[Rfam]
RNA: Singlet oxygen resistance RNA X
Organism: Donghicola tyrosinivorans
RNA sequence: UUCCCGUGCGUAUCCGGGUCAUGAUACGCAACCUCCCUGUUGGACUGACCCGGGCUUGUCCCGGGUCUUUUUU
Numbered sequence: 001u002u003c004c005c006g007u008g009c010g011u012a013u014c015c016g017g018g019u020c021a022u023g024a025u026a027c028g029c030a031a032c033c034u035c036c037c038u039g040u041u042g043g044a045c046u047g048a049c050c051c052g053g054g055c056u057u058g059u060c061c062c063g064g065g066u067c068u069u070u071u072u073u
Stems, first nucleotide, its partner, number of pairs: 008029007047067008